[Rfam]
RNA sequence: GUGGUGUUGAUUGUCCAAACGCAAUUCUUGUAUCACUUCUCCAUAUCCAGGAGUUGUGGAUGGACAUCAUGCCCCAG
Numbered sequence: 001g002u003g004g005u006g007u008u009g010a011u012u013g014u015c016c017a018a019a020c021g022c023a024a025u026u027c028u029u030g031u032a033u034c035a036c037u038u039c040u041c042c043a044u045a046u047c048c049a050g051g052a053g054u055u056g057u058g059g060a061u062g063g064a065c066a067u068c069a070u071g072c073c074c075c076a077g
Stems, first nucleotide, its partner, number of pairs: 002076003006072002008069004013065005020058011
A member of the RNA family "mir-219 microRNA precursor family" from Anabas testudineus, 77 nucleotides long.
The source organism's lineage runs through Eukaryota, Neopterygii, Neoteleostei, Anabantidae and Anabas.
The base pairs follow the family's consensus structure, which was predicted with RNAalifold.
A search with the family's covariance model found it, with a score of 66 bits.
For this family Rfam cites "Computational identification of Drosophila microRNA genes" (Lai et al., Genome Biol, 2003).
Gene Ontology terms of the family: miRNA-mediated post-transcriptional gene silencing and RISC complex.